[Rfam]
RNA: mir-221 microRNA precursor family
Organism: Cyprinus carpio
RNA sequence: UCAUUUGCUCACUCAGUACUCAGUGUAGGGUCUGUCUUAUAUCAAAAUGCAGCUACAUCUGAUUACUGGGUCAGUAAAGAUUCCA
Numbered sequence: 001u002c003a004u005u006u007g008c009u010c011a012c013u014c015a016g017u018a019c020u021c022a023g024u025g026u027a028g029g030g031u032c033u034g035u036c037u038u039a040u041a042u043c044a045a046a047a048u049g050c051a052g053c054u055a056c057a058u059c060u061g062a063u064u065a066c067u068g069g070g071u072c073a074g075u076a077a078a079g080a081u082u083c084c085a
Stems, first nucleotide, its partner, number of pairs: 013069006020062003023058006032052004